The record is a 96-nucleotide sequence from Entomoplasma freundtii, which matches "Bacterial small signal recognition particle RNA" in Rfam.
[Rfam]
RNA sequence: AUAUAUGGCCAUUAUAAAGAUAACGUCUGAAUUAGUCAGGUCCGGAAGGAAGCAGCUAUAAGGAAAUGUGUCUUGUAUAAUGGUUUUAUUUUGGAG
Numbered sequence: 001a002u003a004u005a006u007g008g009c010c011a012u013u014a015u016a017a018a019g020a021u022a023a024c025g026u027c028u029g030a031a032u033u034a035g036u037c038a039g040g041u042c043c044g045g046a047a048g049g050a051a052g053c054a055g056c057u058a059u060a061a062g063g064a065a066a067u068g069u070g071u072c073u074u075g076u077a078u079a080a081u082g083g084u085u086u087u088a089u090u091u092u093g094g095a096g
Stems, first nucleotide, its partner, number of pairs: 005089004009083006015075001017074006026063003033058004041050003
The match comes from Rfam's covariance-model search (55 bits). Pairs were carried over by alignment from the consensus structure, which is taken from published work. About the family: The signal recognition particle (SRP) is a universally conserved ribonucleoprotein involved in the co-translational targeting of proteins to membranes. The organism belongs to Entomoplasma, within Bacteria.